[Rfam]
RNA: Repression of heat shock gene expression (ROSE) element
Organism: Pseudomonas rhizosphaerae
Nucleotides: 065
Base pairs, nucleotide, nucleotide: 001027003025004024005023006022007021008020010019011018012017036053037052038051040050041049042048043047
Number, partner (000 for none) and nucleotide at each position: 001027u002000a003025c004024g005023c006022g007021a008020u009000g010019c011018c012017g013000a014000a015000u016000u017012c018011g019010g020008g021007u022006c023005g024004c025003g026000g027001a028000g029000a030000c031000a032000a033000u034000c035000a036053c037052u038051c039000g040050c041049u042048g043047a044000g045000a046000u047043u048042c049041a050040g051038g052037a053036g054000a055000a056000a057000c058000a059000c060000a061000u062000g063000g064000c065000u